RNA sequence: CUCUGGAAAGCGGCACGUUCGCGCGUGCCCACCGACGAUGUAAGCCCGCGCCCCGUGCACGGGUGAAUCUUUCAGGUUCCAAGGACAGAG
Numbered sequence: 001c002u003c004u005g006g007a008a009a010g011c012g013g014c015a016c017g018u019u020c021g022c023g024c025g026u027g028c029c030c031a032c033c034g035a036c037g038a039u040g041u042a043a044g045c046c047c048g049c050g051c052c053c054c055g056u057g058c059a060c061g062g063g064u065g066a067a068u069c070u071u072u073c074a075g076g077u078u079c080c081a082a083g084g085a086c087a088g089a090g
Base pairs, nucleotide, nucleotide: 001090002089003088004087005086012029013028014027015026031077032076033075034073035072038071040069044064045063046062047061048060
A member of the RNA family "Glycine riboswitch aptamer" from Magnetospirillum sp. UT-4, 90 nucleotides long.
This family represents the bacterial glycine riboswitch.
Its family is annotated with glycine biosynthetic process in the Gene Ontology.
The organism belongs to Magnetospirillum, within Bacteria.